[Rfam]
RNA sequence: AUAUACACUGAGUGGCCAGGUGAUUAUGAUCUCUGAAUACAUAAUAAUCUGGCCACUCUGUGUGUGU
Numbered sequence: 001a002u003a004u005a006c007a008c009u010g011a012g013u014g015g016c017c018a019g020g021u022g023a024u025u026a027u028g029a030u031c032u033c034u035g036a037a038u039a040c041a042u043a044a045u046a047a048u049c050u051g052g053c054c055a056c057u058c059u060g061u062g063u064g065u066g067u
Stems, first nucleotide, its partner, number of pairs: 004064005010058008019049003023045006
RNA: mir-9256 microRNA precursor family